RNA sequence: ACCCCCCAGCCAGGCUGGGGGUUCCGUGAAGCUUUCAGUUAUAUAAACCCCUUUUGAUUGGUUAAAACACCUUGCGGUCUGGCAACUGCAAGGGUUAAACAAGAAAUCAAAAG
Numbered sequence: 001a002c003c004c005c006c007c008a009g010c011c012a013g014g015c016u017g018g019g020g021g022u023u024c025c026g027u028g029a030a031g032c033u034u035u036c037a038g039u040u041a042u043a044u045a046a047a048c049c050c051c052u053u054u055u056g057a058u059u060g061g062u063u064a065a066a067a068c069a070c071c072u073u074g075c076g077g078u079c080u081g082g083c084a085a086c087u088g089c090a091a092g093g094g095u096u097a098a099a100c101a102a103g104a105a106a107u108c109a110a111a112a113g
Stems, first nucleotide, its partner, number of pairs: 001023001003021008031039003051113009061100003066096003070093009
Rfam assigns this 113-nucleotide RNA from Jejuibacter calystegiae to the family "STnc490 Hfq binding RNA". The family's consensus secondary structure was predicted with WAR. The match comes from Rfam's covariance-model search (109 bits). By type it is a small RNA. Taxonomically the source falls in Jejuibacter (Bacteria, Pseudomonadota, Gammaproteobacteria, Enterobacterales).